[Rfam]
RNA sequence: CCUGUCAUGCGACUGACAGUAGCCUAGGGAGACAUGCGUCACUGGCAACGGUGGGGUGUGAAGCUUUCCUGACAACGUAGCCCCCGCAAGGGUGCGUCAUUAUCGUGAGAUAAGGACGCAGAGACUCCGAGCAGCAAUGGGGUCAAGGAG
Number, nucleotide and partner (000 for none) at each position: 001c000002c019003u018004g017005u016006c015007a014008u000009g000010c000011g000012a000013c000014u007015g006016a005017c004018a003019g002020u000021a000022g000023c000024c000025u000026a000027g000028g069029g068030a067031g066032a065033c060034a059035u058036g057037c056038g000039u054040c053041a052042c051043u050044g049045g000046c000047a000048a000049c044050g043051g042052u041053g040054g039055g000056g037057u036058g035059u034060g033061a000062a000063g000064c000065u032066u031067u030068c029069c028070u000071g000072a000073c000074a000075a000076c000077g000078u000079a000080g000081c000082c000083c092084c091085c090086g000087c000088a000089a000090g085091g084092g083093u120094g119095c118096g117097u000098c000099a000100u000101u000102a000103u110104c109105g000106u000107g000108a000109g104110a103111u000112a000113a000114g000115g000116a000117c096118g095119c094120a093121g000122a000123g000124a143125c142126u141127c140128c139129g138130a000131g000132c000133a000134g000135c000136a000137a000138u129139g128140g127141g126142g125143u124144c000145a000146a000147g000148g000149a000150g000
The family of this 150-nucleotide RNA from Cupriavidus metallidurans is "Group II catalytic intron D1-D4-7". It is one of the family's seed sequences. Pairs were carried over by alignment from the consensus structure. Rfam links the family to the GO term Group II intron splicing. From the family's description: Group II introns are found in rRNA, tRNA and mRNA of organelles in fungi, plants and protists, and also in mRNA in bacteria.